[Rfam]
RNA sequence: AUCAUCAAGGGGAAUGAAGUUCUCCCUUGGUUUAUACCUAAACCGCAUUUAACGCUAAUGACUUCUGUUUUCUU
Numbered sequence: 001a002u003c004a005u006c007a008a009g010g011g012g013a014a015u016g017a018a019g020u021u022c023u024c025c026c027u028u029g030g031u032u033u034a035u036a037c038c039u040a041a042a043c044c045g046c047a048u049u050u051a052a053c054g055c056u057a058a059u060g061a062c063u064u065c066u067g068u069u070u071u072c073u074u
Stems, first nucleotide, its partner, number of pairs: 010026004016065006045055002
RNA: Fluoride riboswitch aptamer (crcB RNA motif)
Organism: Clostridium sp. N3C